[Rfam]
RNA sequence: AAACAGACUAACUGUAAGUCGCUCUGGAUAAGAGCGUCUGAUAAAUGACUGGAA
Numbered sequence: 001a002a003a004c005a006g007a008c009u010a011a012c013u014g015u016a017a018g019u020c021g022c023u024c025u026g027g028a029u030a031a032g033a034g035c036g037u038c039u040g041a042u043a044a045a046u047g048a049c050u051g052g053a054a
Stems, first nucleotide, its partner, number of pairs: 013043001015040002020036006
This 54-nucleotide sequence from Oncorhynchus mykiss belongs to the Rfam family "UnaL2 LINE 3' element". Pairs were carried over by alignment from the consensus structure, which is taken from published work. The match comes from Rfam's covariance-model search (56 bits). The organism belongs to Oncorhynchus, within Eukaryota. Rfam classes the family as a cis-regulatory element. A reference for the family is Baba et al. (2004), "Solution structure of an RNA stem-loop derived from the 3' conserved region of eel LINE UnaL2", RNA.